RNA sequence: UAACUCCCACCUGGGUAGCCGCUAGCCACGAGCCCAGUAUCGAGUGUUGCAGGUUGUCUGGUAACAGGCAAGUUGAAGCGUACACAGAAAGGAAGCGAGGAUGAAAGGUAUGGACUAGCUAUCCAGCCCUGAAUGGUACUGAGCCCCGAAAUUAUUGUAACUGUCGGAUUCUGCCCAAGGUGUGUGCAUACUGGAAGGCAAUACCGAACACCGCGUCAUGGCGAGCGUUGUUUGGAGACCCGGGGUCGAACGCCC
Numbered sequence: 001u002a003a004c005u006c007c008c009a010c011c012u013g014g015g016u017a018g019c020c021g022c023u024a025g026c027c028a029c030g031a032g033c034c035c036a037g038u039a040u041c042g043a044g045u046g047u048u049g050c051a052g053g054u055u056g057u058c059u060g061g062u063a064a065c066a067g068g069c070a071a072g073u074u075g076a077a078g079c080g081u082a083c084a085c086a087g088a089a090a091g092g093a094a095g096c097g098a099g100g101a102u103g104a105a106a107g108g109u110a111u112g113g114a115c116u117a118g119c120u121a122u123c124c125a126g127c128c129c130u131g132a133a134u135g136g137u138a139c140u141g142a143g144c145c146c147c148g149a150a151a152u153u154a155u156u157g158u159a160a161c162u163g164u165c166g167g168a169u170u171c172u173g174c175c176c177a178a179g180g181u182g183u184g185u186g187c188a189u190a191c192u193g194g195a196a197g198g199c200a201a202u203a204c205c206g207a208a209c210a211c212c213g214c215g216u217c218a219u220g221g222c223g224a225g226c227g228u229u230g231u232u233u234g235g236a237g238a239c240c241c242g243g244g245g246u247c248g249a250a251c252g253c254c255c
Stems, first nucleotide, its partner, number of pairs: 012036005020030002023224001025222002038090001040088002044085004048080002050075003054071007140249001141247001143246006166240002170238003173199003179192003204235007212227003
Shown here is a 255-nucleotide RNA sequence from Aureliella helgolandensis, a member of the family "Group II catalytic intron D1-D4-6".
A search with the family's covariance model found it, with a score of 126 bits.
On this family, see Bonen and Vogel, Trends Genet 2001: "The ins and outs of group II introns".
Group II introns are found in rRNA, tRNA and mRNA of organelles in fungi, plants and protists, and also in mRNA in bacteria.
The source organism's lineage runs through Bacteria, Pseudomonadati, Planctomycetota, Planctomycetia and Aureliella.